A member of the RNA family "5' ureB small RNA" from Helicobacter felis, 294 nucleotides long.
On this family, see Wen et al., J Bacteriol 2013: "Helicobacter pylori 5'ureB-sRNA, a cis-encoded antisense small RNA, negatively regulates ureAB expression by transcription termination".
It is one of the family's seed sequences.
RNA sequence: CAGUAGGGAUUUGUUGGGGAGAGAUAAAGUGAAUAUGCGUAUCGAUGCCACCAGCGGUUACAAUCAAGCCCUCAGCUGCCAAAGCCUCUGUAGCAGGACCUACGCAAAGAUUAUUAUCUACGCCAUCUUGCAUGUCCUUAUUGCCCGCCUUGCCAAUGCCUGCAAUCUUGCCAUCCUUAAUCCCAAUGUCGGCUUUGUAAAUGCCCGUAUAGUCCACAAUGAGGGCGUUAGUGAGCACCAAAUCUAACUCAUAAGAGCUAGGGCUAUUGGUUUGACUCAUCCCAUCACGGAUAG
Numbered sequence: 001c002a003g004u005a006g007g008g009a010u011u012u013g014u015u016g017g018g019g020a021g022a023g024a025u026a027a028a029g030u031g032a033a034u035a036u037g038c039g040u041a042u043c044g045a046u047g048c049c050a051c052c053a054g055c056g057g058u059u060a061c062a063a064u065c066a067a068g069c070c071c072u073c074a075g076c077u078g079c080c081a082a083a084g085c086c087u088c089u090g091u092a093g094c095a096g097g098a099c100c101u102a103c104g105c106a107a108a109g110a111u112u113a114u115u116a117u118c119u120a121c122g123c124c125a126u127c128u129u130g131c132a133u134g135u136c137c138u139u140a141u142u143g144c145c146c147g148c149c150u151u152g153c154c155a156a157u158g159c160c161u162g163c164a165a166u167c168u169u170g171c172c173a174u175c176c177u178u179a180a181u182c183c184c185a186a187u188g189u190c191g192g193c194u195u196u197g198u199a200a201a202u203g204c205c206c207g208u209a210u211a212g213u214c215c216a217c218a219a220u221g222a223g224g225g226c227g228u229u230a231g232u233g234a235g236c237a238c239c240a241a242a243u244c245u246a247a248c249u250c251a252u253a254a255g256a257g258c259u260a261g262g263g264c265u266a267u268u269g270g271u272u273u274g275a276c277u278c279a280u281c282c283c284a285u286c287a288c289g290g291a292u293a294g
Stems, first nucleotide, its partner, number of pairs: 001294001003292001006288001008286002011165004016160002018076001021073003030053002034050001037048004057069003078153001081151002084148002090144004095139002097136003104131002107129005114122001170276001172274002177270005183263002192226005207214001229260003237252001242249001